[Rfam]
RNA sequence: GGGCAGGCUCUAGCCCAGCGGUUCCUUCAGCUUCCUGCGAUUGUUUUGCUACAGGCCCUGACUGGGGUUCAAUCCUGCAGGCACCCCUGGCCCCUUU
Numbered sequence: 001g002g003g004c005a006g007g008c009u010c011u012a013g014c015c016c017a018g019c020g021g022u023u024c025c026u027u028c029a030g031c032u033u034c035c036u037g038c039g040a041u042u043g044u045u046u047u048g049c050u051a052c053a054g055g056c057c058c059u060g061a062c063u064g065g066g067g068u069u070c071a072a073u074c075c076u077g078c079a080g081g082c083a084c085c086c087c088u089g090g091c092c093c094c095u096u097u
Stems, first nucleotide, its partner, number of pairs: 002092003006088002013082003018078004026072002029069002
Dot-bracket structure: .(((.((.....(((..((((....((.((.....................................)).))..)))).)))....)).))).....
Overview:
This 97-nucleotide sequence from Alectura lathami belongs to the Rfam family "Vault RNA". Rfam classes the family as a non-coding RNA gene. From the family's description: This family of RNAs are found as part of the enigmatic vault ribonucleoprotein complex. The complex consists of a major vault protein (MVP), two minor vault proteins (VPARP and TEP1), and several small untranslated RNA molecules. It has been suggested that the vault complex is involved in drug resistance. The organism belongs to Alectura, within Eukaryota.